[Rfam]
RNA sequence: GGUCAUGAGCAUCAGCGCCAAGCCCCGGCUCGCUGAUCGGCAACCCUCCAACCGCGGUGGGGUGCUCCGGGUGAUGACCUGGUCGCCAUAACGCCGGGGCGACAAGCGCGGGUC
Numbered sequence: 001g002g003u004c005a006u007g008a009g010c011a012u013c014a015g016c017g018c019c020a021a022g023c024c025c026c027g028g029c030u031c032g033c034u035g036a037u038c039g040g041c042a043a044c045c046c047u048c049c050a051a052c053c054g055c056g057g058u059g060g061g062g063u064g065c066u067c068c069g070g071g072u073g074a075u076g077a078c079c080u081g082g083u084c085g086c087c088a089u090a091a092c093g094c095c096g097g098g099g100c101g102a103c104a105a106g107c108g109c110g111g112g113u114c
Stems, first nucleotide, its partner, number of pairs: 001079004009038001011037006021030002039066003044062003048057002082103006089096001
This 114-nucleotide RNA sequence from Gordonia hirsuta belongs to the Rfam family "SAM (S-adenosyl methionine) riboswitch aptamer". A reference for the family is Weinberg et al. (2008), "The aptamer core of SAM-IV riboswitches mimics the ligand-binding site of SAM-I riboswitches", RNA. The match comes from Rfam's covariance-model search (107 bits). Rfam links the family to the GO terms S-adenosylmethionine metabolic process and regulation of gene expression.